[Rfam]
RNA sequence: UUUAGCUAUGAUUGUCCAAACGCAAUUCUUGUUGAUUCCAAUAUUCAAGGGUUGCGACUGGGCAUCGCGGCUCGA
Numbered sequence: 001u002u003u004a005g006c007u008a009u010g011a012u013u014g015u016c017c018a019a020a021c022g023c024a025a026u027u028c029u030u031g032u033u034g035a036u037u038c039c040a041a042u043a044u045u046c047a048a049g050g051g052u053u054g055c056g057a058c059u060g061g062g063c064a065u066c067g068c069g070g071c072u073c074g075a
Base pairs, nucleotide, nucleotide: 002074004072005071006070007069009067010066011065012064014063015062016061017060018059021056022055023054024053025052026051027050028049029048030047031046
RNA: mir-219 microRNA precursor family
Organism: Drosophila kikkawai